A member of the RNA family "tRNA" from Desulfobulbus propionicus, 84 nucleotides long.
RNA sequence: GCCGGAGUGGUGAAACUGGUAGACGCACUGGACUCAAAAUCCAGCGGGGGCGACCCCGUGUCGGUUCGAUUCCGACCUCCGGUA
Numbered sequence: 001g002c003c004g005g006a007g008u009g010g011u012g013a014a015a016c017u018g019g020u021a022g023a024c025g026c027a028c029u030g031g032a033c034u035c036a037a038a039a040u041c042c043a044g045c046g047g048g049g050g051c052g053a054c055c056c057c058g059u060g061u062c063g064g065u066u067c068g069a070u071u072c073c074g075a076c077c078u079c080c081g082g083u084a
Base pairs, nucleotide, nucleotide: 001083002082003081004080005079006078007077010026011025012024028044029043030042031041032040060076061075062074063073064072